Rfam assigns this 538-nucleotide part of an RNA from Strongylocentrotus purpuratus to the family "Eukaryotic large subunit ribosomal RNA". It is one of the family's seed sequences. The source organism's lineage runs through Eukaryota, Opisthokonta, Euechinoidea, Strongylocentrotidae and Strongylocentrotus. Rfam 15.1 lists 107,465 matches to the family in 2,616 species.
RNA sequence: UAGAACAAUGUAGGUAAGGGAAGUCGGCAAGCCGGAUCCGUAACUUCGGGAGAAGGAUUGGCUCUGAGGGCUGGUCGGGUCGGGCCGGGGCAGGAAGCCGGGCUGGAGCCGCAGCGUGGCUGGGCGAGCCUGCUCUGUCAGCUUCGGCUGUCGGAGUCGGGCGAGCCCGGACUGGCGCGGGGUCCGCCCGGUGGACCGUCCCGGCUGCGCGGUCGAGCAAUCGGCCGCUUCGGCCGACGCCCAACAGCUGACUCAGAACUGGCACGGACCAGGGGAAUCCGACUGUCUAAUUAAAACAGAGCAUUGCGAUGUCCGCAACCGGGGCAUUGACGCAAUGUGAUUUCUGCCCAGUGCUCUGAAUGUCAAAGUGAAGAAAUUCAACGAAGCGCGGGUAAACGGCGGGAGUAACUAUGACUCUCUUAAGGUAGCCAAAUGCCUCGUCAUCUAAUUAGUGACGCGCAUGAAUGGAUUAACGAGAUUCCCACUGUCCCUAUCUACUAUCUAGCGAAACCACAGCCAAGGGAACGGGCUUGGCAGA
Numbered sequence: 001u002a003g004a005a006c007a008a009u010g011u012a013g014g015u016a017a018g019g020g021a022a023g024u025c026g027g028c029a030a031g032c033c034g035g036a037u038c039c040g041u042a043a044c045u046u047c048g049g050g051a052g053a054a055g056g057a058u059u060g061g062c063u064c065u066g067a068g069g070g071c072u073g074g075u076c077g078g079g080u081c082g083g084g085c086c087g088g089g090g091c092a093g094g095a096a097g098c099c100g101g102g103c104u105g106g107a108g109c110c111g112c113a114g115c116g117u118g119g120c121u122g123g124g125c126g127a128g129c130c131u132g133c134u135c136u137g138u139c140a141g142c143u144u145c146g147g148c149u150g151u152c153g154g155a156g157u158c159g160g161g162c163g164a165g166c167c168c169g170g171a172c173u174g175g176c177g178c179g180g181g182g183u184c185c186g187c188c189c190g191g192u193g194g195a196c197c198g199u200c201c202c203g204g205c206u207g208c209g210c211g212g213u214c215g216a217g218c219a220a221u222c223g224g225c226c227g228c229u230u231c232g233g234c235c236g237a238c239g240c241c242c243a244a245c246a247g248c249u250g251a252c253u254c255a256g257a258a259c260u261g262g263c264a265c266g267g268a269c270c271a272g273g274g275g276a277a278u279c280c281g282a283c284u285g286u287c288u289a290a291u292u293a294a295a296a297c298a299g300a301g302c303a304u305u306g307c308g309a310u311g312u313c314c315g316c317a318a319c320c321g322g323g324g325c326a327u328u329g330a331c332g333c334a335a336u337g338u339g340a341u342u343u344c345u346g347c348c349c350a351g352u353g354c355u356c357u358g359a360a361u362g363u364c365a366a367a368g369u370g371a372a373g374a375a376a377u378u379c380a381a382c383g384a385a386g387c388g389c390g391g392g393u394a395a396a397c398g399g400c401g402g403g404a405g406u407a408a409c410u411a412u413g414a415c416u417c418u419c420u421u422a423a424g425g426u427a428g429c430c431a432a433a434u435g436c437c438u439c440g441u442c443a444u445c446u447a448a449u450u451a452g453u454g455a456c457g458c459g460c461a462u463g464a465a466u467g468g469a470u471u472a473a474c475g476a477g478a479u480u481c482c483c484a485c486u487g488u489c490c491c492u493a494u495c496u497a498c499u500a501u502c503u504a505g506c507g508a509a510a511c512c513a514c515a516g517c518c519a520a521g522g523g524a525a526c527g528g529g530c531u532u533g534g535c536a537g538a
Base pairs, nucleotide, nucleotide: 001504002503003502004501010498011497012496013495014494015493016492018490019489020488035059036058037057038056039055044049060260061259063257064256065255066254067253068252069249070248071247072246073245078235079234080233081232082231083230084205085204086203088201089200090199091198097192098191099190100189101188102187103186105184106183109180110179111178112177114176115175118172120170121169122168123167124166125165128162129161130160131159132158261265273483274482275481276480277479278478279477280475281474284298285297286296301338302337303336304335305334306333307332308331312323313322314321315320342469343468344467346400347399348398351397352396353393354392355391356390358389361388362387363386369380370379371378372377401419402418403417404416405415406414420424440456441455442454443453444452517534518533519532520531521530